[Rfam]
RNA sequence: AGCCGGGUAGCGCGCAUUGAUACAAGACCCGAAAGGGGAAAAUGCGGGCCGUCUGUGAGCGGUGUUCAAGUACCCGGCCGCCCUCUG
Numbered sequence: 001a002g003c004c005g006g007g008u009a010g011c012g013c014g015c016a017u018u019g020a021u022a023c024a025a026g027a028c029c030c031g032a033a034a035g036g037g038g039a040a041a042a043u044g045c046g047g048g049c050c051g052u053c054u055g056u057g058a059g060c061g062g063u064g065u066u067c068a069a070g071u072a073c074c075c076g077g078c079c080g081c082c083c084u085c086u087g
Stems, first nucleotide, its partner, number of pairs: 002078008013046004028037003048063005

The record is an 87-nucleotide RNA, which matches "sRNA-Xcc1" in Rfam.
On this family, see Chen et al., RNA Biol 2011: "sRNA-Xcc1, an integron-encoded transposon- and plasmid-transferred trans-acting sRNA, is under the positive control of the key virulence regulators HrpG and HrpX of Xanthomonas campestris pathovar campestris".
The family has 74 seed sequences and 421 matches in Rfam 15.1.